[Rfam]
This 100-nucleotide RNA from a Eubacteriaceae bacterium belongs to the Rfam family "THF (Tetrahydrofolate) riboswitch aptamer". A reference for the family is Trausch and Batey (2014), "A disconnect between high-affinity binding and efficient regulation by antifolates and purines in the tetrahydrofolate riboswitch", Chem Biol. About the family: Tetrahydrofolate (THF) riboswitch was first reported for Ames et al. as an RNA motif in 5' untranslated (5'-UTR)regions of folate transport and biosynthesis genes in Firmicutes genomes. Rfam links the family to the GO term tetrahydrofolate metabolic process. Taxonomically the source falls in Eubacteriaceae (Bacteria, Bacillati, Bacillota, Clostridia). The family's consensus secondary structure is taken from published work.
Nucleotides: 100
Base pairs, nucleotide, nucleotide: 001100002099003098004097005096010087011086012085015082016081017080018079019078020076021075022074026057027056029055030054031053032052033051034050035049036048040093041092042091044089061073062072063071064070
Number, partner (000 for none) and nucleotide at each position: 001100a002099g003098c004097a005096g006000a007000g008000u009000a010087g011086g012085a013000u014000c015082g016081g017080a018079c019078g020076c021075g022074u023000c024000a025000a026057g027056u028000g029055c030054c031053g032052g033051c034050u035049g036048a037000a038000c039000g040093g041092g042091g043000a044089g045000u046000u047000g048036u049035c050034a051033g052032c053031u054030g055029g056027a057026c058000g059000a060000a061073a062072a063071g064070c065000g066000a067000u068000a069000a070064g071063c072062u073061u074022a075021c076020g077000g078019u079018g080017u081016c082015c083000c084000u085012u086011c087010c088000g089044c090000a091042u092041c093040c094000c095000g096005u097004u098003g099002c100001u